Overview:
This 205-nucleotide RNA sequence from Oryza meridionalis belongs to the Rfam family "MIR812 microRNA precursor family". NCBI's taxonomy places the organism under Eukaryota, Euphyllophyta, Magnoliopsida, Oryzinae, Oryza. It scores 141 bits against the family's covariance model.

RNA sequence: AAAAACUCAAUUUCUAGGUUUUGAUGUUCAACGUUUGACCGUCCGUUUUAUAUGAAUUUUUUACGAUUAGUAUUUUCAUUACUGUUAGAUGAUAAAACAUAAAUAAUACUUUAUGCAUGACUUAUCUUUUUAAUUUUUUUCAUAUUUUUUUUAAAUAAGACGAACGGUCAAACGUUAGACACGGAAACUCAGGAAUUGAGUUUUU
Numbered sequence: 001a002a003a004a005a006c007u008c009a010a011u012u013u014c015u016a017g018g019u020u021u022u023g024a025u026g027u028u029c030a031a032c033g034u035u036u037g038a039c040c041g042u043c044c045g046u047u048u049u050a051u052a053u054g055a056a057u058u059u060u061u062u063a064c065g066a067u068u069a070g071u072a073u074u075u076u077c078a079u080u081a082c083u084g085u086u087a088g089a090u091g092a093u094a095a096a097a098c099a100u101a102a103a104u105a106a107u108a109c110u111u112u113a114u115g116c117a118u119g120a121c122u123u124a125u126c127u128u129u130u131u132a133a134u135u136u137u138u139u140u141c142a143u144a145u146u147u148u149u150u151u152u153a154a155a156u157a158a159g160a161c162g163a164a165c166g167g168u169c170a171a172a173c174g175u176u177a178g179a180c181a182c183g184g185a186a187a188c189u190c191a192g193g194a195a196u197u198g199a200g201u202u203u204u205u
Stems, first nucleotide, its partner, number of pairs: 027179002030176003034172009044162008
Dot-bracket structure: ..........................((.(((.(((((((((.((((((((.......................................................................................................)))))))).))))))))).))).))..........................